[Rfam]
RNA sequence: ACGCAUCUUCAGGGCAGGGUGAAAUUCCCGAUCGGCGGUUCAGUCCGCGAGCAUCACGAUCGCAAUCAGCAGUCGCGAUGCCGAACCGGUGAGAUUCCGGUACCGACAGUCAUAGUCUGGAUGAAAGAAGCUGCGG
Numbered sequence: 001a002c003g004c005a006u007c008u009u010c011a012g013g014g015c016a017g018g019g020u021g022a023a024a025u026u027c028c029c030g031a032u033c034g035g036c037g038g039u040u041c042a043g044u045c046c047g048c049g050a051g052c053a054u055c056a057c058g059a060u061c062g063c064a065a066u067c068a069g070c071a072g073u074c075g076c077g078a079u080g081c082c083g084a085a086c087c088g089g090u091g092a093g094a095u096u097c098c099g100g101u102a103c104c105g106a107c108a109g110u111c112a113u114a115g116u117c118u119g120g121a122u123g124a125a126a127g128a129a130g131c132u133g134c135g136g
Base pairs, nucleotide, nucleotide: 003134004133005132007130008129009128010127017029018028019027031116032115033105034104035048036047037046038045043103044102051081052080053079054078055077085101086100087099088098089097107119108118109117
This 136-nucleotide RNA sequence from Bifidobacterium stellenboschense belongs to the Rfam family "FMN riboswitch aptamer (RFN element)". Its family is annotated with FMN binding in the Gene Ontology.